[Rfam]
RNA sequence: GGUCCUAUAGCUCAGUUGGUUAGAGCACCUGACUCAUAAUCAGGGAGUCCCUGGUUCAAGCCCAGGUGGGACCA
Numbered sequence: 001g002g003u004c005c006u007a008u009a010g011c012u013c014a015g016u017u018g019g020u021u022a023g024a025g026c027a028c029c030u031g032a033c034u035c036a037u038a039a040u041c042a043g044g045g046a047g048u049c050c051c052u053g054g055u056u057c058a059a060g061c062c063c064a065g066g067u068g069g070g071a072c073c074a
Base pairs, nucleotide, nucleotide: 001073002072003071004070005069006068007067010026011025012024013023028044029043030042031041032040050066051065052064053063054062